[Rfam]
RNA sequence: AUCACGCCUUCGUCAGCAAUGCCGCAUUUUCGCCCGAAACGCGCCAAGCCACCGACAAGUUGCGGCGCUCAACUCUGGAUCGUUGCCUCGACGGCCCGACCUUGCCGUUCUCCGGUUUGUCAGCCCCCCAGCCCCCCGGAGUUCCGGUGGGGUCGGGCCAGCGAGUCGAGGCCAACUCAGCGGCUGACGCUUCGCGUCGGCCGUUUU
Numbered sequence: 001a002u003c004a005c006g007c008c009u010u011c012g013u014c015a016g017c018a019a020u021g022c023c024g025c026a027u028u029u030u031c032g033c034c035c036g037a038a039a040c041g042c043g044c045c046a047a048g049c050c051a052c053c054g055a056c057a058a059g060u061u062g063c064g065g066c067g068c069u070c071a072a073c074u075c076u077g078g079a080u081c082g083u084u085g086c087c088u089c090g091a092c093g094g095c096c097c098g099a100c101c102u103u104g105c106c107g108u109u110c111u112c113c114g115g116u117u118u119g120u121c122a123g124c125c126c127c128c129c130a131g132c133c134c135c136c137c138g139g140a141g142u143u144c145c146g147g148u149g150g151g152g153u154c155g156g157g158c159c160a161g162c163g164a165g166u167c168g169a170g171g172c173c174a175a176c177u178c179a180g181c182g183g184c185u186g187a188c189g190c191u192u193c194g195c196g197u198c199g200g201c202c203g204u205u206u207u
Base pairs, nucleotide, nucleotide: 036178037177041049042048085172086171087170088169089168090167091166093159094158095157096156097155098154099153100152101151102150103149106146107145110141111140112139113138114137115136123132124131181203182202183201184200185199186198187197188196189195190194
RNA: Bradyrhizobiaceae sRNA BjrC174
Organism: Allobosea lathyri